[Rfam]
RNA sequence: AGGCAGCCCUCUUGCGAAUGAAAAUCGAUGGCAAGGGAGGUGUUGUUCUGCUCGGAAAUCAAUCUUCUGCUCUUCAGAUUUGCUGAGAUGGGUUUUUACAGUCCAUCUCUGAAGCUGGUCUAGUAAGCUCAAGCACAUU
Numbered sequence: 001a002g003g004c005a006g007c008c009c010u011c012u013u014g015c016g017a018a019u020g021a022a023a024a025u026c027g028a029u030g031g032c033a034a035g036g037g038a039g040g041u042g043u044u045g046u047u048c049u050g051c052u053c054g055g056a057a058a059u060c061a062a063u064c065u066u067c068u069g070c071u072c073u074u075c076a077g078a079u080u081u082g083c084u085g086a087g088a089u090g091g092g093u094u095u096u097u098a099c100a101g102u103c104c105a106u107c108u109c110u111g112a113a114g115c116u117g118g119u120c121u122a123g124u125a126a127g128c129u130c131a132a133g134c135a136c137a138u139u
Stems, first nucleotide, its partner, number of pairs: 002044004007040002009037007017029001064133003069128003076121005082115003087107007
RNA: Small nucleolar RNA snoR77
Organism: Macleaya cordata